[Rfam]
RNA sequence: GAACCUUUGCCAACACUCUGGCCAAUACCACCCCUCGGGGAAUACACUACGGUAUCGGCCUAUUUUGGUGCAAAGAAGAGCGAUUUCCUUUCGGAGAAGACCCAUUACUCACCGCGGUAUUCUUGGUGUUUCCUUUCAGGAAAUGCUGUGGAUACAGUGGUCCAUAUUUUCGGUCGACAU
Number, nucleotide and partner (000 for none) at each position: 001g000002a000003a000004c000005c000006u000007u073008u072009g071010c000011c000012a000013a000014c000015a000016c000017u000018c000019u000020g060021g059022c058023c057024a000025a000026u054027a053028c052029c051030a000031c000032c000033c000034c000035u000036c000037g000038g000039g000040g000041a000042a000043u000044a000045c000046a000047c000048u000049a000050c000051g029052g028053u027054a026055u000056c000057g023058g022059c021060c020061u000062a000063u000064u000065u000066u000067g000068g000069u000070g000071c009072a008073a007074a000075g000076a000077a000078g000079a000080g000081c000082g000083a000084u000085u000086u000087c000088c000089u000090u000091u000092c000093g000094g000095a000096g000097a000098a000099g175100a174101c173102c172103c000104a000105u000106u000107a000108c000109u000110c000111a000112c160113c159114g158115c157116g000117g155118u154119a153120u000121u152122c151123u150124u000125g000126g000127u000128g000129u000130u000131u000132c000133c000134u000135u000136u000137c000138a000139g000140g000141a000142a000143a000144u000145g000146c000147u000148g000149u000150g123151g122152a121153u119154a118155c117156a000157g115158u114159g113160g112161u000162c000163c000164a000165u000166a000167u000168u000169u000170u000171c000172g102173g101174u100175c099176g000177a000178c000179a000180u000
RNA: Small nucleolar RNA snR80
Organism: Polytolypa hystricis